[Rfam]
RNA sequence: GGGUCAAUGAUAAGGACUUCAUAUUGUCUUGAAGAGAAGUGAUGACUUAAAAAUCAUGUUCGGUGGGAUUAUGCUGAGGCCC
Numbered sequence: 001g002g003g004u005c006a007a008u009g010a011u012a013a014g015g016a017c018u019u020c021a022u023a024u025u026g027u028c029u030u031g032a033a034g035a036g037a038a039g040u041g042a043u044g045a046c047u048u049a050a051a052a053a054u055c056a057u058g059u060u061c062g063g064u065g066g067g068a069u070u071a072u073g074c075u076g077a078g079g080c081c082c
Stems, first nucleotide, its partner, number of pairs: 001082004005076002008073002
The family of this 82-nucleotide sequence from Carlito syrichta is "Small nucleolar RNA SNORD115". A search with the family's covariance model found it, with a score of 89 bits.